[Rfam]
RNA sequence: ACUAUUGAACGACCGGGUGCCACGCUGUGCUCUCUCGGGAUUUAGGUCGAGUGAACACAGCUGGUGGUAUCUCAGUCGUUCACUAGUCU
Numbered sequence: 001a002c003u004a005u006u007g008a009a010c011g012a013c014c015g016g017g018u019g020c021c022a023c024g025c026u027g028u029g030c031u032c033u034c035u036c037g038g039g040a041u042u043u044a045g046g047u048c049g050a051g052u053g054a055a056c057a058c059a060g061c062u063g064g065u066g067g068u069a070u071c072u073c074a075g076u077c078g079u080u081c082a083c084u085a086g087u088c089u
Base pairs, nucleotide, nucleotide: 008080009079010078011077012076015073016071017070019068020067022065023064025060026059027058029056031054032053
This 89-nucleotide RNA sequence from Parnassius apollo belongs to the Rfam family "mir-317 microRNA precursor family". Taxonomically the source falls in Parnassius (Eukaryota, Eumetazoa, Neoptera, Endopterygota). The family's consensus secondary structure was predicted with RNAalifold. Gene Ontology terms of the family: miRNA-mediated post-transcriptional gene silencing and RISC complex.